6S / SsrS RNA: a 182-nucleotide RNA from Brevibacillus centrosporus.
Rfam classes the family as a non-coding RNA gene.
The base pairs follow the family's consensus structure, which is taken from published work.
E. coli 6S RNA was the first non coding RNA to be sequenced, but its function was unknown until recently. It consists of 184 nucleotides that fold into an extended hairpin structure with a large single-stranded internal bulge.
Taxonomically the source falls in Brevibacillus (Bacteria, Bacillati, Bacilli, Paenibacillaceae).
[Rfam]
RNA sequence: GAAGCCCUGAGAUGUACGUGAAAUCCGAUAGUUUUGAGCCACAAAGUUUGUUUAGGGAGUUUUUCGUCCGCAACUGUAAAGGCAUGCCUCCAUCGAGUGGACGUCUGUAAUGGUUGGGCAAGACACCCACCUGCGAUGAGCAGGUUCAAAACUAAGGAGCUACACGGCAUAAUGGGGCUCCU
Numbered sequence: 001g002a003a004g005c006c007c008u009g010a011g012a013u014g015u016a017c018g019u020g021a022a023a024u025c026c027g028a029u030a031g032u033u034u035u036g037a038g039c040c041a042c043a044a045a046g047u048u049u050g051u052u053u054a055g056g057g058a059g060u061u062u063u064u065c066g067u068c069c070g071c072a073a074c075u076g077u078a079a080a081g082g083c084a085u086g087c088c089u090c091c092a093u094c095g096a097g098u099g100g101a102c103g104u105c106u107g108u109a110a111u112g113g114u115u116g117g118g119c120a121a122g123a124c125a126c127c128c129a130c131c132u133g134c135g136a137u138g139a140g141c142a143g144g145u146u147c148a149a150a151a152c153u154a155a156g157g158a159g160c161u162a163c164a165c166g167g168c169a170u171a172a173u174g175g176g177g178c179u180c181c182u
Base pairs, nucleotide, nucleotide: 003179004178005177006176007175008174009173012170013169014168015167017166018165019164031152032151033150034149035148036147037146038145039144040143055128056127057126059124060123061122062121063120069118071116072115073114074113075112081106082105087100088099090097